Overview
Shown here is a 104-nucleotide sequence from Prunus yedoensis, a member of the family "MIR6274 microRNA precursor family". The base pairs follow the family's consensus structure, which was predicted with RNAalifold. Rfam links the family to the GO terms RISC complex and miRNA-mediated post-transcriptional gene silencing.
RNA sequence: GGAUAGCACUGUUUUGCUAACCCCGGUCAAUAACACAAUGACACGUGGAAAAUUAUCCAACGUGUUACUGCGUUAUUGGCCGGGAAUAGCAAAAAGUGAUAUCC
Number, nucleotide and partner (000 for none) at each position: 001g000002g103003a102004u101005a100006g000007c000008a000009c000010u000011g000012u094013u093014u092015u091016g090017c089018u088019a087020a000021c000022c084023c083024c082025g081026g080027u079028c078029a077030a076031u075032a074033a073034c072035a000036c070037a069038a000039u067040g066041a065042c064043a063044c062045g061046u060047g058048g057049a056050a000051a000052a000053u000054u000055a000056u049057c048058c047059a000060a046061c045062g044063u043064g042065u041066u040067a039068c000069u037070g036071c000072g034073u033074u032075a031076u030077u029078g028079g027080c026081c025082g024083g023084g022085a000086a000087u019088a018089g017090c016091a015092a014093a013094a012095a000096g000097u000098g000099a000100u005101a004102u003103c002104c000